Notes:
This 125-nucleotide RNA sequence belongs to the Rfam family "LOOT RNA". It is annotated as a small RNA. It is one of the family's seed sequences.
RNA sequence: UGUCUAAACCAAUGAAAAUUGGCAUGGCAUAAAACCAGUCUAAGGAAACGGAAGCUCUCCGUUCAAUGGAACCUUAGACUGGUUGUGAACCGAAAGGUUCAUAGCUAUUUCCGCAAGGGAAUGGC
Numbered sequence: 001u002g003u004c005u006a007a008a009c010c011a012a013u014g015a016a017a018a019u020u021g022g023c024a025u026g027g028c029a030u031a032a033a034a035c036c037a038g039u040c041u042a043a044g045g046a047a048a049c050g051g052a053a054g055c056u057c058u059c060c061g062u063u064c065a066a067u068g069g070a071a072c073c074u075u076a077g078a079c080u081g082g083u084u085g086u087g088a089a090c091c092g093a094a095a096g097g098u099u100c101a102u103a104g105c106u107a108u109u110u111c112c113g114c115a116a117g118g119g120a121a122u123g124g125c
Stems, first nucleotide, its partner, number of pairs: 001029004009022005035082011047063006084103008104125009